[Rfam]
RNA sequence: ACUGCCGGACUCACAAAACCCAGCCGCAAGUCAGGUUGGUGCGUCUGUCUGGGUCGGGGCGCGUAAGCCGCCCAACCUCAUCCCGCUCGCUCGCCGAGCAGGGAGUGCUCGCUCAGGGCUGAGGGAACUACAAAAGCCUCGGGCCACCGCGCCCGAGGUUGUUUACUCCGCGCGACGUGAUCCACG
Dot-bracket structure: ....((((((..((.....((((((........))))))...))..))))))((..((((((....).))))).)).......((....(.((.((.((..((((((.(.((.....)).).............((((((((((......))))))))))...)))))))).)).)).).....))
Numbered sequence: 001a002c003u004g005c006c007g008g009a010c011u012c013a014c015a016a017a018a019c020c021c022a023g024c025c026g027c028a029a030g031u032c033a034g035g036u037u038g039g040u041g042c043g044u045c046u047g048u049c050u051g052g053g054u055c056g057g058g059g060c061g062c063g064u065a066a067g068c069c070g071c072c073c074a075a076c077c078u079c080a081u082c083c084c085g086c087u088c089g090c091u092c093g094c095c096g097a098g099c100a101g102g103g104a105g106u107g108c109u110c111g112c113u114c115a116g117g118g119c120u121g122a123g124g125g126a127a128c129u130a131c132a133a134a135a136g137c138c139u140c141g142g143g144c145c146a147c148c149g150c151g152c153c154c155g156a157g158g159u160u161g162u163u164u165a166c167u168c169c170g171c172g173c174g175a176c177g178u179g180a181u182c183c184a185c186g
Stems, first nucleotide, its partner, number of pairs: 005052006013044002020039006053076002057073005062067001084186002090179001092177002095174002098171002102169006109121001111119002135160010
Sense overlapping transcript RNA 2652 (sot): a 186-nucleotide RNA sequence from Halovenus aranensis. Rfam 15.1 lists 37 matches to the family in 25 species. The organism belongs to Halovenus, within Archaea.